Background:
The record is a 106-nucleotide RNA sequence from Scleropages formosus, which matches "Small nucleolar RNA SNORD46" in Rfam. Gene Ontology terms of the family: RNA processing and nucleolus. Rfam describes the family as follows. U40 is a C/D box small nucleolar RNA, also known as snoZ153 in plants. Its Rfam clan is "SNORD46 clan". The family's RNA type in Rfam is C/D-box small nucleolar RNA. NCBI's taxonomy places the organism under Eukaryota, Eumetazoa, Actinopterygii, Actinopteri, Scleropages. For this family Rfam cites "The high diversity of snoRNAs in plants: identification and comparative study of 120 snoRNA genes from Oryza sativa" (Chen et al., Nucleic Acids Res, 2003). It scores 64 bits against the family's covariance model.

RNA sequence: UGUGUGGAUGAUGAAAUUAUGACCUUAGGUAGGUUUGUUUUGGCCAUUUUGGCUAAUGCUGUGGACCUGCCAAUGCUAGGAUUUGUCAUAGUUACACUGACACAUU
Numbered sequence: 001u002g003u004g005u006g007g008a009u010g011a012u013g014a015a016a017u018u019a020u021g022a023c024c025u026u027a028g029g030u031a032g033g034u035u036u037g038u039u040u041u042g043g044c045c046a047u048u049u050u051g052g053c054u055a056a057u058g059c060u061g062u063g064g065a066c067c068u069g070c071c072a073a074u075g076c077u078a079g080g081a082u083u084u085g086u087c088a089u090a091g092u093u094a095c096a097c098u099g100a101c102a103c104a105u106u
Base pairs, nucleotide, nucleotide: 002105003104004103005102006101